Group II catalytic intron D1-D4-3: a 178-nucleotide sequence from Fulvivirga sp. M361. It scores 81 bits against the family's covariance model. Taxonomically the source falls in Fulvivirga (Bacteria, Pseudomonadati, Bacteroidota, Cytophagales).
RNA sequence: UUUGGAGUGAUCCACGCACUGAAGUAAGCCAGACUGCGGUGUCUGUACUGACGAACAGGAACCACAUACAGAGGCUAUGAGGCCGGAUGAGGCAGCACAUCAUGCCGAAGUCCAACUCCUCGAAAGAGUCUGGUGCCGAAAUAGUAGAUGUAGCAGCGAUAGGCACAAGGAUAUUCAC
Numbered sequence: 001u002u003u004g005g006a007g008u009g010a011u012c013c014a015c016g017c018a019c020u021g022a023a024g025u026a027a028g029c030c031a032g033a034c035u036g037c038g039g040u041g042u043c044u045g046u047a048c049u050g051a052c053g054a055a056c057a058g059g060a061a062c063c064a065c066a067u068a069c070a071g072a073g074g075c076u077a078u079g080a081g082g083c084c085g086g087a088u089g090a091g092g093c094a095g096c097a098c099a100u101c102a103u104g105c106c107g108a109a110g111u112c113c114a115a116c117u118c119c120u121c122g123a124a125a126g127a128g129u130c131u132g133g134u135g136c137c138g139a140a141a142u143a144g145u146a147g148a149u150g151u152a153g154c155a156g157c158g159a160u161a162g163g164c165a166c167a168a169g170g171a172u173a174u175u176c177a178c
Base pairs, nucleotide, nucleotide: 001016003014004013005012006011028178031175032174035171040165041164042163043162044161045160046158048156049155050154062153064151065150066149067148074145075144076143078140081137082136083135085113086112087111088110091106092105093104094103